RNA sequence: GGACAAGCAAUGCUUGCCUUGAUGUUGAACUUUUGAAUAGUGAUUCAGGAGGUUAAUGAUGGCAC
Dot-bracket structure: ((.(((((...))))))).....(((((.(((((((((....))))))))).)))))........
FourU thermometer RNA element: a 65-nucleotide RNA from Salmonella enterica. On this family, see Waldminghaus et al., Mol Microbiol 2007: "FourU: a novel type of RNA thermometer in Salmonella". Gene Ontology terms of the family: response to temperature stimulus and regulation of translation. FourU is a small thermoregulator element found upstream of the agsA gene in Salmonella species. Lineage of the source: Bacteria > Salmonella > Salmonella enterica > Salmonella enterica subsp. enterica > Salmonella enterica subsp. enterica serovar Dublin. It is annotated as an RNA thermoregulator. The base pairs follow the family's consensus structure, which is taken from published work.